[Rfam]
RNA sequence: UCAGGUCAGGCUGUAACAGCAAAUCAAAGUAGGUGUUAGGAUUCAAAACACCUACUUUGAUUUGCUGUUACAGCCUGACCUGA
Numbered sequence: 001u002c003a004g005g006u007c008a009g010g011c012u013g014u015a016a017c018a019g020c021a022a023a024u025c026a027a028a029g030u031a032g033g034u035g036u037u038a039g040g041a042u043u044c045a046a047a048a049c050a051c052c053u054a055c056u057u058u059g060a061u062u063u064g065c066u067g068u069u070a071c072a073g074c075c076u077g078a079c080c081u082g083a
Base pairs, nucleotide, nucleotide: 001083002082003081004080005079006078013071014070015069016068017067018066019065020064021063022062023061024060026058027057028056029055030054031053032052033051034050035049036048
Record summary
A member of the RNA family "mir-15 microRNA precursor family" from Pelusios castaneus, 83 nucleotides long. The literature on the family includes a 2001 paper in Science by Lagos-Quintana et al., "Identification of novel genes coding for small expressed RNAs". Pairs were carried over by alignment from the consensus structure, which was predicted with RNAalifold. This family represents the related mir-15a and mir-15b sequences. In humans miR-15a and miR-16 are clustered within 0.5 kb at 13q14. This region has been shown to be deleted in more than half of B cell chronic lymphocytic leukaemias (CLL). Both miR-15a and miR-16 are deleted or down-regulated in more than two thirds of CLL cases. Taxonomically the source falls in Pelusios (Eukaryota, Teleostomi, Archelosauria, Pleurodira).